Tryptophan operon leader: a 94-nucleotide RNA from Escherichia coli. Rfam's curators write: At least 6 amino acid operons are known to be regulated by attenuation. In each a leader sequence of 150-200 bp is found upstream of the first gene in the operon. This leader sequence can assume two different secondary structures known as the terminator and the anti-terminator structure. In each case the leader also codes for very short peptide sequence that is rich in the end product amino acid of the operon. The terminator structure is recognised as a termination signal for RNA polymerase and the operon is not transcribed. This structure forms when the cell has an excess of the regulatory amino acid and ribosome movement over the leader transcript is not impeded. When there is a deficiency of the charged tRNA of the regulatory amino acid the ribosome translating the leader peptide stalls and the antiterminator structure can form. This allows RNA polymerase to transcribe the operon. In the Rfam alignment the consensus structure is of the terminator structure. Lineage of the source: Bacteria > Pseudomonadati > Pseudomonadota > Enterobacteriaceae > Escherichia. A reference for the family is Kolter and Yanofsky (1982), "Attenuation in amino acid biosynthetic operons", Annu Rev Genet. Rfam classes the family as a cis-regulatory leader. Rfam's curators put it in the seed alignment.

[Rfam]
RNA sequence: AAAGGUUGGUGGCGCACUUCCUGAAUUCGGGCAGUGUAUUCACCAUGCGAGAGUAGGGAACUGCCAGGAUCAAAGAUAAAACGAAAGGCUCAGU
Numbered sequence: 001a002a003a004g005g006u007u008g009g010u011g012g013c014g015c016a017c018u019u020c021c022u023g024a025a026u027u028c029g030g031g032c033a034g035u036g037u038a039u040u041c042a043c044c045a046u047g048c049g050a051g052a053g054u055a056g057g058g059a060a061c062u063g064c065c066a067g068g069a070u071c072a073a074a075g076a077u078a079a080a081a082c083g084a085a086a087g088g089c090u091c092a093g094u
Stems, first nucleotide, its partner, number of pairs: 009043004014037005020031004070084002